RNA: Group II catalytic intron D1-D4-1
RNA sequence: CGAGUCUAUGGCAAGCAGUAACAACGAACCAUGAGAAGUCAGCAGAAGUCAUAGUAAUCGGAUAGGGAAAAAAAAUCGGCAACCGAUGAAGGAC
Numbered sequence: 001c002g003a004g005u006c007u008a009u010g011g012c013a014a015g016c017a018g019u020a021a022c023a024a025c026g027a028a029c030c031a032u033g034a035g036a037a038g039u040c041a042g043c044a045g046a047a048g049u050c051a052u053a054g055u056a057a058u059c060g061g062a063u064a065g066g067g068a069a070a071a072a073a074a075a076u077c078g079g080c081a082a083c084c085g086a087u088g089a090a091g092g093a094c
Stems, first nucleotide, its partner, number of pairs: 001026002004022002009017002039046002048094003057087005